[Rfam]
RNA sequence: GCUUAUUCUCAGGGCGGGGCGUAAUUCCCCACCGGCGGUAAAUCAGCACAGGCUGAAAGCCCGCGAGCGCUCCGGUAGUUGAUGCCGGAGGACAGCAGAUCCGGUGAGAUUCCGGGGCCGACGGUUAUAGUCCGGAUGGGAGAGGAUAACG
Numbered sequence: 001g002c003u004u005a006u007u008c009u010c011a012g013g014g015c016g017g018g019g020c021g022u023a024a025u026u027c028c029c030c031a032c033c034g035g036c037g038g039u040a041a042a043u044c045a046g047c048a049c050a051g052g053c054u055g056a057a058a059g060c061c062c063g064c065g066a067g068c069g070c071u072c073c074g075g076u077a078g079u080u081g082a083u084g085c086c087g088g089a090g091g092a093c094a095g096c097a098g099a100u101c102c103g104g105u106g107a108g109a110u111u112c113c114g115g116g117g118c119c120g121a122c123g124g125u126u127a128u129a130g131u132c133c134g135g136a137u138g139g140g141a142g143a144g145g146a147u148a149a150c151g
Base pairs, nucleotide, nucleotide: 003149004148005147006146007145008144009143010142017029018028019027031131032130033120034119035064036063037062038061059118060117067096068095100116101115102114103113104112122134123133124132
Dot-bracket structure: ..((((((((......(((.......))).[[((((((....................[[))))..((..........................))...(((((.......)))))]])).(((.....]]))).......))))))))..
About this RNA:
The family of this 151-nucleotide sequence from Tenebrionibacter intestinalis is "FMN riboswitch aptamer (RFN element)". NCBI's taxonomy places the organism under Bacteria, Pseudomonadati, Gammaproteobacteria, Enterobacterales, Tenebrionibacter. The match comes from Rfam's covariance-model search (117 bits).